[Rfam]
RNA sequence: CUCUUAUCCAGAGAAGGCUGAGGGACUGGCCCUAUGAAGCCCGGCAACCUAGUACGCAGCAUUACCGGCGUACCAAGGUGCUAAUUCCUACAGGUAGCGCGCUACCUGACAGAUAAGAG
Numbered sequence: 001c002u003c004u005u006a007u008c009c010a011g012a013g014a015a016g017g018c019u020g021a022g023g024g025a026c027u028g029g030c031c032c033u034a035u036g037a038a039g040c041c042c043g044g045c046a047a048c049c050u051a052g053u054a055c056g057c058a059g060c061a062u063u064a065c066c067g068g069c070g071u072a073c074c075a076a077g078g079u080g081c082u083a084a085u086u087c088c089u090a091c092a093g094g095u096a097g098c099g100c101g102c103u104a105c106c107u108g109a110c111a112g113a114u115a116a117g118a119g
Base pairs, nucleotide, nucleotide: 001119002118003117004116005115006114007113008112013042016041017040018039022032023031024030028088029087043082044081045080046079048078049077050075052073053072054071055070056069057068086111091108092107093106094105095104096103
This 119-nucleotide RNA sequence from Brevibacillus panacihumi belongs to the Rfam family "SAM riboswitch aptamer (S box leader)". The organism belongs to Brevibacillus panacihumi, within Bacteria.